[Rfam]
This 86-nucleotide RNA sequence from Cytobacillus kochii belongs to the Rfam family "pan motif". The family's consensus secondary structure is taken from published work. The organism belongs to Cytobacillus, within Bacteria.
RNA sequence: UGGGCAGUAUCGGUAAGAACUGCACCUGUUUGACCAUCAUUUAUACGCGAAAUCUGCCUAGAUCCAUUUAGGACCAGGACAGAGGG
Numbered sequence: 001u002g003g004g005c006a007g008u009a010u011c012g013g014u015a016a017g018a019a020c021u022g023c024a025c026c027u028g029u030u031u032g033a034c035c036a037u038c039a040u041u042u043a044u045a046c047g048c049g050a051a052a053u054c055u056g057c058c059u060a061g062a063u064c065c066a067u068u069u070a071g072g073a074c075c076a077g078g079a080c081a082g083a084g085g086g
Base pairs, nucleotide, nucleotide: 002026003025004023005022006021007020008019010018011017054082055081056080057078058077059076061074063073064072065071
Dot-bracket structure: .(((((((.((.....))))))).))...........................((((((.(.(((.....)))).))).)))....